[Rfam]
The record is a 424-nucleotide RNA from Nocardia wallacei, which matches "Bacterial RNase P class A" in Rfam. The family's RNA type in Rfam is ribozyme. It scores 270 bits against the family's covariance model. Pairs were carried over by alignment from the consensus structure, which is taken from published work.
RNA sequence: CGAGUCGGUCGGGCGGCCGCGUCGACAGGAACGGGCACGGGCUGUGCCGCCGCCUGUCGCCGAGGAAAGUCCGGACUCCACAGAGCAGGGCGGUUGUUAACGGCAACCCGGGGUGACCCGCGGGACAGUGCCACAGAAAACAAACCGCCGGCGCCGAGCCUUUCCGAAGGCGAAGCGCCGGUAAGGGUGAAACGGUGCGGUAAGAGCGCACCAGCGCCCCGGGUGACCGGGGCGGCUAGGUAAACCCCGCCCGGAGCAAGGUCGAAGGCCGCACUCCCCGGAGUGCGGUUGCGCAGGCGCCCGAGGGCUGCUCGCCCGAGCCUGCGGGUGGACCGCUCGAGGUGCCCGGCAACGGAACACCCAGAUGGAUGGCCGCCCCCAGCACCAGCUGGGACAGGAUCCGGCUUACAGACCGACUCGUCCC
Numbered sequence: 001c002g003a004g005u006c007g008g009u010c011g012g013g014c015g016g017c018c019g020c021g022u023c024g025a026c027a028g029g030a031a032c033g034g035g036c037a038c039g040g041g042c043u044g045u046g047c048c049g050c051c052g053c054c055u056g057u058c059g060c061c062g063a064g065g066a067a068a069g070u071c072c073g074g075a076c077u078c079c080a081c082a083g084a085g086c087a088g089g090g091c092g093g094u095u096g097u098u099a100a101c102g103g104c105a106a107c108c109c110g111g112g113g114u115g116a117c118c119c120g121c122g123g124g125a126c127a128g129u130g131c132c133a134c135a136g137a138a139a140a141c142a143a144a145c146c147g148c149c150g151g152c153g154c155c156g157a158g159c160c161u162u163u164c165c166g167a168a169g170g171c172g173a174a175g176c177g178c179c180g181g182u183a184a185g186g187g188u189g190a191a192a193c194g195g196u197g198c199g200g201u202a203a204g205a206g207c208g209c210a211c212c213a214g215c216g217c218c219c220c221g222g223g224u225g226a227c228c229g230g231g232g233c234g235g236c237u238a239g240g241u242a243a244a245c246c247c248c249g250c251c252c253g254g255a256g257c258a259a260g261g262u263c264g265a266a267g268g269c270c271g272c273a274c275u276c277c278c279c280g281g282a283g284u285g286c287g288g289u290u291g292c293g294c295a296g297g298c299g300c301c302c303g304a305g306g307g308c309u310g311c312u313c314g315c316c317c318g319a320g321c322c323u324g325c326g327g328g329u330g331g332a333c334c335g336c337u338c339g340a341g342g343u344g345c346c347c348g349g350c351a352a353c354g355g356a357a358c359a360c361c362c363a364g365a366u367g368g369a370u371g372g373c374c375g376c377c378c379c380c381a382g383c384a385c386c387a388g389c390u391g392g393g394a395c396a397g398g399a400u401c402c403g404g405c406u407u408a409c410a411g412a413c414c415g416a417c418u419c420g421u422c423c424c
Base pairs, nucleotide, nucleotide: 001420002419003418004417005416006415007414008413009412010411011409012377013376014375015374016373017372018371020062021061023059024058025057026056027055028054067407068406069405071404072403073402074401075400076256077255078254079253083313084312085311086310088252089251090250091249092248093107094106095105096104097103108122109120110119111118112117123247124246128245129244130241131240132239145186146185147182148181149180150179151178152177153176154175194212195211196210197209198208199207214236215234216233217232218231219230220229221228222227260334261333262332263331293325294324295323296322297321298320305317306316307315308314341360346355347354348353